[Rfam]
The family of this 125-nucleotide RNA sequence from Tupaia belangeri is "Small Cajal body specific RNA 23". By type it is a small Cajal body RNA. The base pairs follow the family's consensus structure, which was predicted with RNAfold. A search with the family's covariance model found it, with a score of 103 bits. Rfam describes the family as follows. scaRNAs are a specific class of small nuclear RNAs which localise to the Cajal bodies and guide the modification of RNA polymerase II transcribed spliceosomal RNAs U1, U2, U4, U5 and U12. ACA11 belongs to the H/ACA box class of guide RNAs as it has the predicted hairpin-hinge-hairpin-tail structure,the conserved H/ACA-box motifs and is found associated with GAR1. H/ACA snRNAs are predicted to guide the modification of uridines to pseudouridines in substrate RNAs however, no target RNA has been identified for scaRNA ACA11.
RNA sequence: GUGCUCACUGGGGCUCAGUCCAUUCCAUGUAGUCUGAACCUACCCUCUAUAAGCAAGAGAAACAGGACUGGUUUGGGGGUGUCCUGUCUGACUGGACAUGGGACACCACAGUUUACAAUACAACA
Dot-bracket structure: ..(((.(....((....((.....(......).....))...)).....).)))..........(.(.((..(((..((((((((((((....))))..)))))))).)))....)).).)....
Numbered sequence: 001g002u003g004c005u006c007a008c009u010g011g012g013g014c015u016c017a018g019u020c021c022a023u024u025c026c027a028u029g030u031a032g033u034c035u036g037a038a039c040c041u042a043c044c045c046u047c048u049a050u051a052a053g054c055a056a057g058a059g060a061a062a063c064a065g066g067a068c069u070g071g072u073u074u075g076g077g078g079g080u081g082u083c084c085u086g087u088c089u090g091a092c093u094g095g096a097c098a099u100g101g102g103a104c105a106c107c108a109c110a111g112u113u114u115a116c117a118a119u120a121c122a123a124c125a
Stems, first nucleotide, its partner, number of pairs: 003054003007050001012044002018039002025032001065121001067119001069117002073111003078107008086097004